[Rfam]
RNA sequence: CGUAUGGUGUUCGCGGAGAGCGCGGAUGGCGAUACGGCCUGAAACUGAGGU
Numbered sequence: 001c002g003u004a005u006g007g008u009g010u011u012c013g014c015g016g017a018g019a020g021c022g023c024g025g026a027u028g029g030c031g032a033u034a035c036g037g038c039c040u041g042a043a044a045c046u047g048a049g050g051u
Stems, first nucleotide, its partner, number of pairs: 001036005007030002011025005

L31-Gammaproteobacteria ribosomal protein leader: a 51-nucleotide RNA sequence.
The sequence is in the family's curated seed alignment.